[Rfam]
The record is a 66-nucleotide RNA sequence from Mytilus coruscus, which matches "Selenocysteine insertion sequence 1" in Rfam. The family's consensus secondary structure is taken from published work.
RNA sequence: UAUAUUUUAUGAUGGUAUGAUACUAAACCCCUAACGGGAGGUAUUGUACUUGAUUUCAUACAUAGA
Numbered sequence: 001u002a003u004a005u006u007u008u009a010u011g012a013u014g015g016u017a018u019g020a021u022a023c024u025a026a027a028c029c030c031c032u033a034a035c036g037g038g039a040g041g042u043a044u045u046g047u048a049c050u051u052g053a054u055u056u057c058a059u060a061c062a063u064a065g066a
Stems, first nucleotide, its partner, number of pairs: 001066001003064003014050010029038003